[Rfam]
RNA sequence: AAACAGCCCCCUAUGUUUUGAUUCUUUGGCAGUUUUGGACCCCAGUCCUUUAGUGAGGUGCCACGUAUAUUAUUUAGAGGGCCACGUGGCACCUCACUAAUGGACUGGGGGUCCAAAACUGCCAAAGAAUCAAAACAUAGGGGGCUGUUU
Numbered sequence: 001a002a003a004c005a006g007c008c009c010c011c012u013a014u015g016u017u018u019u020g021a022u023u024c025u026u027u028g029g030c031a032g033u034u035u036u037g038g039a040c041c042c043c044a045g046u047c048c049u050u051u052a053g054u055g056a057g058g059u060g061c062c063a064c065g066u067a068u069a070u071u072a073u074u075u076a077g078a079g080g081g082c083c084a085c086g087u088g089g090c091a092c093c094u095c096a097c098u099a100a101u102g103g104a105c106u107g108g109g110g111g112u113c114c115a116a117a118a119c120u121g122c123c124a125a126a127g128a129a130u131c132a133a134a135a136c137a138u139a140g141g142g143g144g145c146u147g148u149u150u
Stems, first nucleotide, its partner, number of pairs: 001150002004147005012139032045106001056094002059091008
The record is a 150-nucleotide sequence from Medicago truncatula, which matches "MIR2619 microRNA precursor family" in Rfam.
Rfam links the family to the GO terms miRNA-mediated post-transcriptional gene silencing and RISC complex.
The family's consensus secondary structure was predicted with RNAalifold.